Overview: ylbH leader: a 119-nucleotide RNA sequence from Rossellomorea marisflavi. Rfam classes the family as a cis-regulatory leader. The match comes from Rfam's covariance-model search (110 bits). Gene Ontology term of the family: regulation of gene expression. For this family Rfam cites "New RNA motifs suggest an expanded scope for riboswitches in bacterial genetic control" (Barrick et al., Proc Natl Acad Sci U S A, 2004). The organism belongs to Rossellomorea, within Bacteria.
[Rfam]
Nucleotides: 119
Stems, first nucleotide, its partner, number of pairs: 011031008032067005041054004079116004084112004089108005
Number, partner (000 for none) and nucleotide at each position: 001000a002000c003000a004000u005000a006000a007000a008000a009000a010000g011031c012030c013029c014028u015027g016026c017025a018024g019000c020000a021000a022000u023000a024018c025017u026016g027015c028014a029013g030012g031011g032067u033066c034065c035064u036063u037000c038000c039000a040000u041054a042053u043052c044051c045000a046000u047000u048000u049000c050000u051044g052043g053042a054041u055000c056000g057000a058000a059000g060000g061000c062000a063036a064035a065034g066033g067032g068000a069000g070000a071000g072000g073000a074000g075000a076000a077000a078000c079116c080115g081114g082113a083000g084112g085111a086110a087109g088000a089108a090107c091106u092105u093104a094000u095000g096000g097000g098000g099000a100000a101000u102000c103000g104093u105092a106091a107090g108089u109087c110086u111085u112084c113082u114081c115080c116079g117000c118000g119000g